[Rfam]
RNA sequence: UGGGGUGCGGUGAUGAUGUCUAUAUUAGGACUAGAGUUUCCGAUCUGGGUUUAACUCAGAAGUUGAAGAUCACCCUUGGCUGUCUGAGCACCCUA
Numbered sequence: 001u002g003g004g005g006u007g008c009g010g011u012g013a014u015g016a017u018g019u020c021u022a023u024a025u026u027a028g029g030a031c032u033a034g035a036g037u038u039u040c041c042g043a044u045c046u047g048g049g050u051u052u053a054a055c056u057c058a059g060a061a062g063u064u065g066a067a068g069a070u071c072a073c074c075c076u077u078g079g080c081u082g083u084c085u086g087a088g089c090a091c092c093c094u095a
Base pairs, nucleotide, nucleotide: 001095002094003093004092005091006090007089008088037068038067039066040065044061045059046058047057048056049055
The record is a 95-nucleotide RNA from Coptis chinensis, which matches "Small nucleolar RNA Z157/R69/R10" in Rfam.
Its Rfam clan is "SNORD52 clan".
The family has 10 seed sequences and 836 matches in Rfam 15.1.
The organism belongs to Coptis, within Eukaryota.